[Rfam]
RNA sequence: AAGAGUGCGGUGAUGAUACAAUUUUCGUGGACUAGAGUUUCUGAUCUGGGUCUCAAAAUCCAGAAGCUGAUUAACAACCCUUGGCUGUCUGAGCAUUCUU
Numbered sequence: 001a002a003g004a005g006u007g008c009g010g011u012g013a014u015g016a017u018a019c020a021a022u023u024u025u026c027g028u029g030g031a032c033u034a035g036a037g038u039u040u041c042u043g044a045u046c047u048g049g050g051u052c053u054c055a056a057a058a059u060c061c062a063g064a065a066g067c068u069g070a071u072u073a074a075c076a077a078c079c080c081u082u083g084g085c086u087g088u089c090u091g092a093g094c095a096u097u098c099u100u
Base pairs, nucleotide, nucleotide: 001100002099003098004097005096006095007094008093040070041069045065046063047062048061049060050059
RNA: Small nucleolar RNA Z157/R69/R10
Organism: Ziziphus jujuba